[Rfam]
RNA: mir-4863 microRNA precursor family
Organism: Branchiostoma floridae
RNA sequence: CCUUGCCUGGUCAUGCAGACAACAUCAGAAUGUCCCUACGGGUUUGUGUAGUUAGUAGGGCCAUUUUGUGUUGUCAGCAGGACCAGUGCACUU
Numbered sequence: 001c002c003u004u005g006c007c008u009g010g011u012c013a014u015g016c017a018g019a020c021a022a023c024a025u026c027a028g029a030a031u032g033u034c035c036c037u038a039c040g041g042g043u044u045u046g047u048g049u050a051g052u053u054a055g056u057a058g059g060g061c062c063a064u065u066u067u068g069u070g071u072u073g074u075c076a077g078c079a080g081g082a083c084c085a086g087u088g089c090a091c092u093u
Base pairs, nucleotide, nucleotide: 004090005089006088007086008085009084010083011082012081014079015078016077018075019074020073021072022071023070024069026068027067028066029065030064031063032062034060035059036058037057038056039055